[Rfam]
RNA sequence: GGUCUGAUGCCACGUCCCCGGUAGUCAGAGCACUGUUAUGACCGGCGAUGUCAUGAUUGGACCGAAAUCGAGUUUAUCAUUUCGCAUCUUGAUAGGAACCUGUGGACUGGUUAUUUUCCGUACAUCCAUGGAGCCGUUUUGUGCGAUUACAAUU
Numbered sequence: 001g002g003u004c005u006g007a008u009g010c011c012a013c014g015u016c017c018c019c020g021g022u023a024g025u026c027a028g029a030g031c032a033c034u035g036u037u038a039u040g041a042c043c044g045g046c047g048a049u050g051u052c053a054u055g056a057u058u059g060g061a062c063c064g065a066a067a068u069c070g071a072g073u074u075u076a077u078c079a080u081u082u083c084g085c086a087u088c089u090u091g092a093u094a095g096g097a098a099c100c101u102g103u104g105g106a107c108u109g110g111u112u113a114u115u116u117u118c119c120g121u122a123c124a125u126c127c128a129u130g131g132a133g134c135c136g137u138u139u140u141g142u143g144c145g146a147u148u149a150c151a152a153u154u
Stems, first nucleotide, its partner, number of pairs: 002062007009054001013050004018045001020043003024036002082146005095135002100131003104127003
RNA: Small nucleolar RNA snoR2/U65
Organism: Phtheirospermum japonicum